RNA: Small Cajal body specific RNA 6
Organism: Oryzias javanicus
Nucleotides: 270
Stems, first nucleotide, its partner, number of pairs: 001270004035250001036246001039226006046219001058211004062122007081108008089099001130190003134186002146174004151169005
Number, partner (000 for none) and nucleotide at each position: 001270g002269g003268u004267c005000a006000g007000u008000g009000a010000u011000g012000a013000g014000c015000a016000g017000u018000a019000a020000a021000a022000g023000g024000u025000c026000u027000g028000a029000u030000u031000u032000c033000c034000c035250a036246c037000a038000a039226u040225c041224c042223u043222c044221u045000g046219c047000u048000g049000c050000u051000c052000c053000u054000c055000u056000g057000g058211c059210u060209c061208c062122c063121a064120g065119c066118a067117g068116c069000c070000a071000g072000c073000u074000c075000u076000u077000u078000c079000u080000c081108c082107c083106a084105u085104c086103a087102u088101g089099c090000u091000c092000c093000a094000g095000u096000g097000c098000u099089g100000u101088u102087g103086u104085g105084a106083u107082g108081g109000u110000c111000c112000a113000g114000c115000u116068g117067c118066u119065g120064c121063u122062g123000a124000c125000a126000u127000a128000c129000a130190g131189g132188a133000a134186g135185u136000g137000a138000c139000a140000u141000c142000a143000c144000u145000g146174a147173g148172a149171g150000u151169c152168u153167g154166c155165a156000c157000a158000g159000a160000g161000a162000a163000u164000c165155u166154g167153c168152a169151g170000c171149c172148u173147c174146u175000c176000u177000g178000a179000u180000g181000u182000c183000a184000g185135a186134c187000g188132u189131c190130c191000c192000a193000c194000a195000g196000a197000a198000c199000c200000a201000a202000u203000c204000a205000g206000a207000a208061g209060g210059a211058g212000u213000u214000u215000a216000a217000c218000u219046g220000a221044g222043g223042a224041g225040g226039a227000g228000g229000a230000g231000g232000a233000g234000g235000a236000g237000g238000a239000g240000g241000g242000a243000g244000c245000u246036g247000a248000u249000c250035u251000c252000c253000a254000g255000u256000u257000u258000u259000c260000a261000a262000c263000c264000u265000g266000a267004g268003a269002c270001c